[Rfam]
RNA sequence: CCUUCGGAACGCGUGGCCGGAUUCCCGCCUCUGCGCGCGGUGACGGCUACGCUGGCGGGGUGCGUGUCCUGCCCGCGGCAGCCGCCCCGCGCGGUGGCCCGGGCCAGGGGAGCGCAUAGCCGACAGCCGUCGCAUCCCAGGGAGCAGCCCAUG
Numbered sequence: 001c002c003u004u005c006g007g008a009a010c011g012c013g014u015g016g017c018c019g020g021a022u023u024c025c026c027g028c029c030u031c032u033g034c035g036c037g038c039g040g041u042g043a044c045g046g047c048u049a050c051g052c053u054g055g056c057g058g059g060g061u062g063c064g065u066g067u068c069c070u071g072c073c074c075g076c077g078g079c080a081g082c083c084g085c086c087c088c089g090c091g092c093g094g095u096g097g098c099c100c101g102g103g104c105c106a107g108g109g110g111a112g113c114g115c116a117u118a119g120c121c122g123a124c125a126g127c128c129g130u131c132g133c134a135u136c137c138c139a140g141g142g143a144g145c146a147g148c149c150c151a152u153g
Stems, first nucleotide, its partner, number of pairs: 061116004067111004119133002122131003
Dot-bracket structure: ............................................................((((..((((.....................................)))).))))..((.(((....)))))....................
The record is a 153-nucleotide RNA sequence from Actinacidiphila guanduensis, which matches "Streptomyces-metH RNA" in Rfam. Taxonomically the source falls in Actinacidiphila (Bacteria, Actinomycetes, Kitasatosporales, Streptomycetaceae).